[Rfam]
RNA sequence: UCCUCCGGUGCUGUAGCAGCACAGAAUGGUUUGUGGGUUACACAGGGGUGCAGACCAUGCUGUGCUGCCGCAGUAACGUCUGG
Numbered sequence: 001u002c003c004u005c006c007g008g009u010g011c012u013g014u015a016g017c018a019g020c021a022c023a024g025a026a027u028g029g030u031u032u033g034u035g036g037g038u039u040a041c042a043c044a045g046g047g048g049u050g051c052a053g054a055c056c057a058u059g060c061u062g063u064g065c066u067g068c069c070g071c072a073g074u075a076a077c078g079u080c081u082g083g
Stems, first nucleotide, its partner, number of pairs: 001083002006078001013071002016068009026058010
Shown here is an 83-nucleotide sequence from Scleropages formosus, a member of the family "mir-15 microRNA precursor family". The source organism's lineage runs through Eukaryota, Euteleostomi, Actinopterygii, Neopterygii and Scleropages. The base pairs follow the family's consensus structure, which was predicted with RNAalifold. About the family: This family represents the related mir-15a and mir-15b sequences. In humans miR-15a and miR-16 are clustered within 0.5 kb at 13q14. Clan: mir-15 clan. The literature on the family includes a 2002 paper in Proc Natl Acad Sci U S A by Calin et al., "Frequent deletions and down-regulation of micro- RNA genes miR15 and miR16 at 13q14 in chronic lymphocytic leukemia".